[Rfam]
RNA sequence: AUCGCCUUUUAAUCGAACUCAGAGAGGUUCGAAAAGGAGAUGGAGUGAAAAGUUCCCAGCUUAUUCUGGUCAGCGUGUAUCGAAUAACCUCCUCGCCGGAUGGUGAGGGGGUUUUUUUGU
Numbered sequence: 001a002u003c004g005c006c007u008u009u010u011a012a013u014c015g016a017a018c019u020c021a022g023a024g025a026g027g028u029u030c031g032a033a034a035a036g037g038a039g040a041u042g043g044a045g046u047g048a049a050a051a052g053u054u055c056c057c058a059g060c061u062u063a064u065u066c067u068g069g070u071c072a073g074c075g076u077g078u079a080u081c082g083a084a085u086a087a088c089c090u091c092c093u094c095g096c097c098g099g100a101u102g103g104u105g106a107g108g109g110g111g112u113u114u115u116u117u118u119g120u
Stems, first nucleotide, its partner, number of pairs: 003039001005037005014031006050080001052078002055075001057073001059071001061069002084115001086113012
This 120-nucleotide RNA sequence from Candidatus Methylomirabilis lanthanidiphila belongs to the Rfam family "PyrR binding site". Rfam links the family to the GO terms pyrimidine nucleobase transport and pyrimidine nucleobase biosynthetic process. On this family, see Bonner et al., Nucleic Acids Res 2001: "Molecular recognition of pyr mRNA by the Bacillus subtilis attenuation regulatory protein PyrR". The family's RNA type in Rfam is cis-regulatory element.